[Rfam]
RNA sequence: CUACUCUUGCACAGAAUCACAUCUCGAUAAUUGUCAGUGCAAGAAGGACAAUUAUACCA
Numbered sequence: 001c002u003a004c005u006c007u008u009g010c011a012c013a014g015a016a017u018c019a020c021a022u023c024u025c026g027a028u029a030a031u032u033g034u035c036a037g038u039g040c041a042a043g044a045a046g047g048a049c050a051a052u053u054a055u056a057c058c059a
Stems, first nucleotide, its partner, number of pairs: 007042006028054008
Dot-bracket structure: ......[[[[[[...............((((((((.]]]]]]....)))))))).....
This 59-nucleotide RNA from Deltacoronavirus lonchurae belongs to the Rfam family "Coronavirus 3' UTR pseudoknot". For this family Rfam cites "A phylogenetically conserved hairpin-type 3' untranslated region pseudoknot functions in coronavirus RNA replication" (Williams et al., J Virol, 1999). The base pairs follow the family's consensus structure, which is taken from published work. Coronaviruses are plus-strand RNA viruses with ~30kb genomes. The 3' UTR region of coronavirus genomes contains a conserved ~55nt pseudoknot structure which has been shown to be necessary for viral genome replication. The family is grouped with related families in Rfam's "Coronavirus 3' UTR". NCBI's taxonomy places the organism under Viruses, Orthocoronavirinae, Deltacoronavirus, Deltacoronavirus lonchurae, Munia coronavirus HKU13.